Notes:
The family of this 98-nucleotide RNA sequence from Actinomadura soli is "Glycine riboswitch aptamer". Gene Ontology term of the family: glycine biosynthetic process.
RNA sequence: CGACCUCUGGAAAGCGGGGAUCCUGUCCCCCGCCGAAGGUGCAAGCCCGUCCUCUGUGACGGGUGAAGCUCUCAGGCGCAGAUGACAGAGGGGGAGGC
Numbered sequence: 001c002g003a004c005c006u007c008u009g010g011a012a013a014g015c016g017g018g019g020a021u022c023c024u025g026u027c028c029c030c031c032g033c034c035g036a037a038g039g040u041g042c043a044a045g046c047c048c049g050u051c052c053u054c055u056g057u058g059a060c061g062g063g064u065g066a067a068g069c070u071c072u073c074a075g076g077c078g079c080a081g082a083u084g085a086c087a088g089a090g091g092g093g094g095a096g097g098c
Stems, first nucleotide, its partner, number of pairs: 004091006016030004032077003035073002039071001041069001045064006
Dot-bracket structure: ...((((((......((((.......)))).(((((..(.(...((((((........))))))....).))).)))........)))))).......
NCBI's taxonomy places the organism under Bacteria, Actinomycetota, Actinomycetes, Thermomonosporaceae, Actinomadura.